[Rfam]
RNA sequence: UACAUCGAAUAAUUUGAAAAUCAACAACAUAGGAAGAUCUUCACUCGAAAGUAGUAUUACGCGCAAAUGAGGAGUAAUUAUUGUUCGGUAUCAAAUGGAGAGAAAAAAAGCGCCCGCAGGCGCUUUAACGUUUCU
Numbered sequence: 001u002a003c004a005u006c007g008a009a010u011a012a013u014u015u016g017a018a019a020a021u022c023a024a025c026a027a028c029a030u031a032g033g034a035a036g037a038u039c040u041u042c043a044c045u046c047g048a049a050a051g052u053a054g055u056a057u058u059a060c061g062c063g064c065a066a067a068u069g070a071g072g073a074g075u076a077a078u079u080a081u082u083g084u085u086c087g088g089u090a091u092c093a094a095a096u097g098g099a100g101a102g103a104a105a106a107a108a109a110g111c112g113c114c115c116g117c118a119g120g121c122g123c124u125u126u127a128a129c130g131u132u133u134c135u
Stems, first nucleotide, its partner, number of pairs: 062069001107126008
Source information
Rfam assigns this 135-nucleotide RNA sequence from Escherichia albertii to the family "Enterobacteria sRNA STnc130". Taxonomically the source falls in Escherichia albertii (Bacteria, Pseudomonadati, Gammaproteobacteria, Enterobacteriaceae). It is annotated as a small RNA.